[Rfam]
RNA sequence: ACUUACCUUCGGGGCGAGGUGCAAUUCCUCACCGGCGGUGAUCGGCGGUCAGCAGUAAUCGCGAAUAAGCGAGGCAGGCGCCGCCGUCAGUCCGUGACCCGUCAUCGCAUUCGCCGGUUACCGGCGAAUGCGAUGCGGUGGACCUGGUGCAACUCCGGGACCGACAGUAACAGUCUGGAUGGGAGAAGGAAGCG
Numbered sequence: 001a002c003u004u005a006c007c008u009u010c011g012g013g014g015c016g017a018g019g020u021g022c023a024a025u026u027c028c029u030c031a032c033c034g035g036c037g038g039u040g041a042u043c044g045g046c047g048g049u050c051a052g053c054a055g056u057a058a059u060c061g062c063g064a065a066u067a068a069g070c071g072a073g074g075c076a077g078g079c080g081c082c083g084c085c086g087u088c089a090g091u092c093c094g095u096g097a098c099c100c101g102u103c104a105u106c107g108c109a110u111u112c113g114c115c116g117g118u119u120a121c122c123g124g125c126g127a128a129u130g131c132g133a134u135g136c137g138g139u140g141g142a143c144c145u146g147g148u149g150c151a152a153c154u155c156c157g158g159g160a161c162c163g164a165c166a167g168u169a170a171c172a173g174u175c176u177g178g179a180u181g182g183g184a185g186a187a188g189g190a191a192g193c194g
Stems, first nucleotide, its partner, number of pairs: 003192002006189005017029003031174002033163002035095004099138004143159005165177003
Dot-bracket structure: ..((.(((((......(((.......))).[[((((((.....................................................))))...((((................................))))....(((((.......)))))..)).(((.....]]))).......))))).))..
RNA: FMN riboswitch aptamer (RFN element)